[Rfam]
This 103-nucleotide RNA from Enterococcus sulfureus belongs to the Rfam family "TPP riboswitch aptamer (THI element)". Vitamin B(1) in its active form thiamin pyrophosphate (TPP) is an essential coenzyme that is synthesised by coupling of pyrimidine and thiazole moieties in bacteria. The source organism's lineage runs through Bacteria, Bacillota, Bacilli, Enterococcaceae and Enterococcus sulfureus.
RNA sequence: UGAUUCACAAAGGGGAGUCCAUUUGGGCUGAGAAUGAGCAAUGCUCUAAACCCUCUGAACCUGUUUCGAUCAUGCGAACGUAGGGAUUGUGAGAGUGACAUAG
Number, nucleotide and partner (000 for none) at each position: 001u000002g000003a000004u000005u000006c091007a090008c089009a088010a087011a054012g053013g052014g051015g000016a000017g028018u027019c026020c025021a000022u000023u000024u000025g020026g019027g018028c017029u000030g000031a000032g000033a000034a000035u000036g046037a045038g044039c043040a000041a000042u000043g039044c038045u037046c036047u000048a000049a000050a000051c014052c013053c012054u011055c000056u000057g000058a000059a000060c084061c083062u082063g081064u000065u078066u077067c076068g075069a000070u000071c000072a000073u000074g000075c068076g067077a066078a065079c000080g000081u063082a062083g061084g060085g000086a000087u010088u009089g008090u007091g006092a000093g000094a000095g000096u000097g000098a000099c000100a000101u000102a000103g000